[Rfam]
Nucleotides: 059
Base pairs, nucleotide, nucleotide: 006053007052009050010049011048012047022042023041024040025039026038028037029036030035
Number, partner (000 for none) and nucleotide at each position: 001000c002000g003000c004000g005000c006053g007052g008000g009050c010049c011048g012047g013000g014000c015000c016000c017000c018000u019000c020000u021000g022042a023041c024040u025039g026038u027000c028037g029036c030035c031000u032000u033000c034000g035030g036029g037028u038026g039025c040024g041023g042022u043000g044000a045000u046000g047012u048011c049010g050009g051000a052007c053006c054000g055000c056000g057000u058000a059000a